[Rfam]
RNA sequence: GGGGGUGAUCGGUUUCGACUUCGGUAGUCGUUUCAGGGGAAGCGGGCCGAGGGUUGCGUUUGUGACCUCGUUAAUCCUGCAUUCGCGUAAACACAAGUGCCAAUUCUAAGCGCACUGAGUUCGCUCUCGCUGCCUAAGCGAUAGCGUCUCUGUCGGUCCGGGCUCGUCAUCGGCUCGGGAUCCGGCAUCAGCUAGAUGACUUACCGCUCAGAUCAGGCCACGGGGCCUGAGCGGGACAUUUUCGUGGCUGGGCCUGUCAGCGAUGUGUUCGUGCAAGCGCUGGGGCCGAGUAGAACGACACCACGAACUGCGCCCGGAGAAGCCCUGGCUCGGUGCUGAAGGACGCGGGUUCGAUUCCCGCCACCUCCACGA
Numbered sequence: 001g002g003g004g005g006u007g008a009u010c011g012g013u014u015u016c017g018a019c020u021u022c023g024g025u026a027g028u029c030g031u032u033u034c035a036g037g038g039g040a041a042g043c044g045g046g047c048c049g050a051g052g053g054u055u056g057c058g059u060u061u062g063u064g065a066c067c068u069c070g071u072u073a074a075u076c077c078u079g080c081a082u083u084c085g086c087g088u089a090a091a092c093a094c095a096a097g098u099g100c101c102a103a104u105u106c107u108a109a110g111c112g113c114a115c116u117g118a119g120u121u122c123g124c125u126c127u128c129g130c131u132g133c134c135u136a137a138g139c140g141a142u143a144g145c146g147u148c149u150c151u152g153u154c155g156g157u158c159c160g161g162g163c164u165c166g167u168c169a170u171c172g173g174c175u176c177g178g179g180a181u182c183c184g185g186c187a188u189c190a191g192c193u194a195g196a197u198g199a200c201u202u203a204c205c206g207c208u209c210a211g212a213u214c215a216g217g218c219c220a221c222g223g224g225g226c227c228u229g230a231g232c233g234g235g236a237c238a239u240u241u242u243c244g245u246g247g248c249u250g251g252g253c254c255u256g257u258c259a260g261c262g263a264u265g266u267g268u269u270c271g272u273g274c275a276a277g278c279g280c281u282g283g284g285g286c287c288g289a290g291u292a293g294a295a296c297g298a299c300a301c302c303a304c305g306a307a308c309u310g311c312g313c314c315c316g317g318a319g320a321a322g323c324c325c326u327g328g329c330u331c332g333g334u335g336c337u338g339a340a341g342g343a344c345g346c347g348g349g350u351u352c353g354a355u356u357c358c359c360g361c362c363a364c365c366u367c368c369a370c371g372a
Stems, first nucleotide, its partner, number of pairs: 001368007019341008028332001030331001033328006043316005048070005055087004061081001122146004127141004151187006157179008166200006204234008216249006251287005258282003264275002267308004271302001345361005

transfer-messenger RNA: a 372-nucleotide RNA sequence from Nocardiopsis sp. NRRL B-16309. The family's consensus secondary structure is taken from published work. Rfam's curators write: Bacterial tmRNA, also known as 10Sa RNA or SsrA, is named for its dual tRNA and mRNA-like properties. Its role is to liberate the mRNA from a stalled ribosome. To accomplish this part of the tmRNA is used as a reading frame that ends in a translation stop signal. Rfam links the family to the GO term RNA catabolic process. It scores 158 bits against the family's covariance model.